Rfam assigns this 215-nucleotide sequence from Thalassomonas actiniarum to the family "Lysine riboswitch aptamer". The organism belongs to Thalassomonas, within Bacteria. A search with the family's covariance model found it, with a score of 86 bits.
RNA sequence: AGCACCAGAAGAGGCGCGUUAGCCAGGUAGAUAACACGAGGAACCACUUUUCCUGUGACGGUUAUUGAGGGGGACUAACGCCGAGAGCGCUAUUGCUUGUGGUCAAUAGUACUCGGUUGCCAGGGUUGAAUCCCUGGGACUGUCACUCGUUUUCGGCAACCUUUUGGGUAUUGUUAAAUGCCUGGUUUGCUAUUCGGUGGAGAGCUUCUGGCUGA
Numbered sequence: 001a002g003c004a005c006c007a008g009a010a011g012a013g014g015c016g017c018g019u020u021a022g023c024c025a026g027g028u029a030g031a032u033a034a035c036a037c038g039a040g041g042a043a044c045c046a047c048u049u050u051u052c053c054u055g056u057g058a059c060g061g062u063u064a065u066u067g068a069g070g071g072g073g074a075c076u077a078a079c080g081c082c083g084a085g086a087g088c089g090c091u092a093u094u095g096c097u098u099g100u101g102g103u104c105a106a107u108a109g110u111a112c113u114c115g116g117u118u119g120c121c122a123g124g125g126u127u128g129a130a131u132c133c134c135u136g137g138g139a140c141u142g143u144c145a146c147u148c149g150u151u152u153u154c155g156g157c158a159a160c161c162u163u164u165u166g167g168g169u170a171u172u173g174u175u176a177a178a179u180g181c182c183u184g185g186u187u188u189g190c191u192a193u194u195c196g197g198u199g200g201a202g203a204g205c206u207u208c209u210g211g212c213u214g215a
Base pairs, nucleotide, nucleotide: 006210007209008208009207010206011205016081017080018079019078020077021076022075024073030066031065032064033063034062035061085114086113087112089110090109091108092107093106094105095104115141116140117139118138120137121136122135123134124133125132143200144199145198146197147196149194